[Rfam]
RNA sequence: UUACUUACCUGGAUGGGGUCUAUGGGAGAUCAAGAAGGUCCAUGGCCUAGGUUGGUGACCUCCAUUGCACUCAGGAGGGGCGCCCGCCUAAGAUAUCUCCAAGUGGGAUAGUCUACAUCAUAAUUUGUUGCUGAGGGGGUACGCGUUCGCGCGGCCCCUG
Numbered sequence: 001u002u003a004c005u006u007a008c009c010u011g012g013a014u015g016g017g018g019u020c021u022a023u024g025g026g027a028g029a030u031c032a033a034g035a036a037g038g039u040c041c042a043u044g045g046c047c048u049a050g051g052u053u054g055g056u057g058a059c060c061u062c063c064a065u066u067g068c069a070c071u072c073a074g075g076a077g078g079g080g081c082g083c084c085c086g087c088c089u090a091a092g093a094u095a096u097c098u099c100c101a102a103g104u105g106g107g108a109u110a111g112u113c114u115a116c117a118u119c120a121u122a123a124u125u126u127g128u129u130g131c132u133g134a135g136g137g138g139g140u141a142c143g144c145g146u147u148c149g150c151g152c153g154g155c156c157c158c159u160g
Base pairs, nucleotide, nucleotide: 012119013118014117015116016048017047018046019045020044023042024041025040026039049089050088051087053086055083056082057081059079060078061077062075063074091114092113093112094110095109096108098106099105135159136158137157138156139155142153143152144151145150

The record is a 160-nucleotide RNA from Aquilegia coerulea, which matches "U1 spliceosomal RNA" in Rfam. It is annotated as a spliceosomal small nuclear RNA. The family's consensus secondary structure is taken from published work. About the family: U1 is a small nuclear RNA (snRNA) component of the spliceosome (involved in pre-mRNA splicing).